The record is a 96-nucleotide sequence from Chroococcidiopsis thermalis, which matches "TPP riboswitch aptamer (THI element)" in Rfam. The source organism's lineage runs through Bacteria, Bacillati, Cyanobacteriota, Chroococcidiopsis and Chroococcidiopsis thermalis.

RNA sequence: AACCAUAGCUAGGGGUGUCUGGGAAACCAGGCUGAGACAGUCCCUUAGAACCUGAGACUGGGUAAUACCAGCGGAGGGAAGCUGUUUAUGCGAGGA
Numbered sequence: 001a002a003c004c005a006u007a008g009c010u011a012g013g014g015g016u017g018u019c020u021g022g023g024a025a026a027c028c029a030g031g032c033u034g035a036g037a038c039a040g041u042c043c044c045u046u047a048g049a050a051c052c053u054g055a056g057a058c059u060g061g062g063u064a065a066u067a068c069c070a071g072c073g074g075a076g077g078g079a080a081g082c083u084g085u086u087u088a089u090g091c092g093a094g095g096a
Stems, first nucleotide, its partner, number of pairs: 006084005011045004016039001017032005051077003058071004